The family of this 178-nucleotide RNA from Streptomyces sp. So13.3 is "c-di-AMP riboswitch aptamer (ydaO/yuaA leader)".
Rfam links the family to the GO terms regulation of gene expression and cyclic-di-AMP binding.
It scores 62 bits against the family's covariance model.
[Rfam]
RNA sequence: GUGCUUUGAACACCAAACUUCUACGGCAGGAGCGGGGGACCCAGGUAAGUGCCGUUCCCGAAGGUCAGGAACGGCUUGGGGUUAAGUCGCAAUGCGCCGCGCGUCCAUGGCGCAUGCCGCGACCGGGCAGCUCCAGCCCGAACCCGACAGCUCACCUCGCCGGCGUAGGAGAGGAACU
Numbered sequence: 001g002u003g004c005u006u007u008g009a010a011c012a013c014c015a016a017a018c019u020u021c022u023a024c025g026g027c028a029g030g031a032g033c034g035g036g037g038g039a040c041c042c043a044g045g046u047a048a049g050u051g052c053c054g055u056u057c058c059c060g061a062a063g064g065u066c067a068g069g070a071a072c073g074g075c076u077u078g079g080g081g082u083u084a085a086g087u088c089g090c091a092a093u094g095c096g097c098c099g100c101g102c103g104u105c106c107a108u109g110g111c112g113c114a115u116g117c118c119g120c121g122a123c124c125g126g127g128c129a130g131c132u133c134c135a136g137c138c139c140g141a142a143c144c145c146g147a148c149a150g151c152u153c154a155c156c157u158c159g160c161c162g163g164c165g166u167a168g169g170a171g172a173g174g175a176a177c178u
Base pairs, nucleotide, nucleotide: 011165013163014162019030020029032160033159034158035157036156037155042078043077044076045075046074079145080144081143087122088121089120090119125139126138127137128136